Overview: Rfam assigns this 99-nucleotide RNA sequence from Pseudomonas oryzae to the family "Glycine riboswitch aptamer". Its Rfam clan is "Glycine riboswitch clan". The organism belongs to Pseudomonas, within Bacteria. It scores 60 bits against the family's covariance model.

RNA sequence: UGUCACUUCGCAGGAGAGUGAGCGCGACGGUGAUCCCGGGCGCUCCGCCGAAGGCGCAAACUCCCAUAAUCGCUCAGGCUCAGGAACUGCGAAGUCACG
Numbered sequence: 001u002g003u004c005a006c007u008u009c010g011c012a013g014g015a016g017a018g019u020g021a022g023c024g025c026g027a028c029g030g031u032g033a034u035c036c037c038g039g040g041c042g043c044u045c046c047g048c049c050g051a052a053g054g055c056g057c058a059a060a061c062u063c064c065c066a067u068a069a070u071c072g073c074u075c076a077g078g079c080u081c082a083g084g085a086a087c088u089g090c091g092a093a094g095u096c097a098c099g
Stems, first nucleotide, its partner, number of pairs: 006094008020045006047079003050075002054073003060067001